[Rfam]
RNA sequence: UGUAUCGGUGAUGAUAAUUUGGCUCCCUCUACUGAAAUCCGAUGAGGAGAAACGCCAUCGUUACCCAAUUUCUACUGAGAUACA
Numbered sequence: 001u002g003u004a005u006c007g008g009u010g011a012u013g014a015u016a017a018u019u020u021g022g023c024u025c026c027c028u029c030u031a032c033u034g035a036a037a038u039c040c041g042a043u044g045a046g047g048a049g050a051a052a053c054g055c056c057a058u059c060g061u062u063a064c065c066c067a068a069u070u071u072c073u074a075c076u077g078a079g080a081u082a083c084a
Stems, first nucleotide, its partner, number of pairs: 001084006

The family of this 84-nucleotide RNA from Synaphobranchus kaupii is "Small nucleolar RNA SNORD100". For this family Rfam cites "Purified box C/D snoRNPs are able to reproduce site-specific 2'-O-methylation of target RNA in vitro" (Galardi et al., Mol Cell Biol, 2002). NCBI's taxonomy places the organism under Eukaryota, Metazoa, Craniata, Gnathostomata, Synaphobranchus. Pairs were carried over by alignment from the consensus structure, which was predicted with RNAalifold. The family has 26 seed sequences and 838 matches in Rfam 15.1. The family is grouped with related families in Rfam's "SNORD100 clan".